Pseudomonas sRNA P1: a 180-nucleotide RNA from Pseudomonas protegens.
This small RNA (sRNA) was computationally identified in the genome of the opportunistic pathogen Pseudomonas aeruginosa and its expression verified by northern blot analysis. There appears to be two related copies of P1 sRNA in the P.aeruginosa PA01 genome and both copies appear to be located upstream of predicted glutamine synthetase genes. This sRNA appears to be conserved amongst several Pseudomonas species. P1 has a predicted Rho independent terminator at the 3' end but the function of P1 is unknown.
It is one of the family's seed sequences.
Taxonomically the source falls in Pseudomonas protegens (Bacteria, Pseudomonadales, Pseudomonadaceae, Pseudomonas).
[Rfam]
RNA sequence: ACCCCGGUAUUAUUGCUGUUAUGGGUUUGAUUCGAGCUUAGCCUUGUUCAUUUUUUUACACAACACCCCCGUAAAAAAUACAACACGGCCCGCUCAAGCCUGCGGUACCCAAGGCGGCCGAGCCCCAAAAAACGCCCUGUUUUGCCCCAAAAGAGCCUUGCCAGCCCUUUAUUAGGGCAU
Numbered sequence: 001a002c003c004c005c006g007g008u009a010u011u012a013u014u015g016c017u018g019u020u021a022u023g024g025g026u027u028u029g030a031u032u033c034g035a036g037c038u039u040a041g042c043c044u045u046g047u048u049c050a051u052u053u054u055u056u057u058a059c060a061c062a063a064c065a066c067c068c069c070c071g072u073a074a075a076a077a078a079u080a081c082a083a084c085a086c087g088g089c090c091c092g093c094u095c096a097a098g099c100c101u102g103c104g105g106u107a108c109c110c111a112a113g114g115c116g117g118c119c120g121a122g123c124c125c126c127a128a129a130a131a132a133c134g135c136c137c138u139g140u141u142u143u144g145c146c147c148c149a150a151a152a153g154a155g156c157c158u159u160g161c162c163a164g165c166c167c168u169u170u171a172u173u174a175g176g177g178c179a180u
Stems, first nucleotide, its partner, number of pairs: 023101006034093001036091001041089003044085001046084003052078008164178002167175001